This 109-nucleotide sequence from Idiomarina xiamenensis belongs to the Rfam family "t44 RNA". The match comes from Rfam's covariance-model search (80 bits). A reference for the family is Tjaden et al. (2002), "Transcriptome analysis of Escherichia coli using high-density oligonucleotide probe arrays", Nucleic Acids Res. Rfam classes the family as a small RNA. The source organism's lineage runs through Bacteria, Pseudomonadota, Gammaproteobacteria, Alteromonadales and Idiomarina xiamenensis.

[Rfam]
RNA sequence: UAAUUAAACAAUUAAAACCACACAUACAUCGACACAUAGUCCGGGGUGCCUAGUGUUAAACACAGGGUGUUGAACACGGGUCGGGUUAUGGGAUGUAUGGAGGCCUAAC
Numbered sequence: 001u002a003a004u005u006a007a008a009c010a011a012u013u014a015a016a017a018c019c020a021c022a023c024a025u026a027c028a029u030c031g032a033c034a035c036a037u038a039g040u041c042c043g044g045g046g047u048g049c050c051u052a053g054u055g056u057u058a059a060a061c062a063c064a065g066g067g068u069g070u071u072g073a074a075c076a077c078g079g080g081u082c083g084g085g086u087u088a089u090g091g092g093a094u095g096u097a098u099g100g101a102g103g104c105c106u107a108a109c
Base pairs, nucleotide, nucleotide: 023099024098025097026096027095028094029093030092035090036089037088038087039086040085041084042083043082048081049080050079051078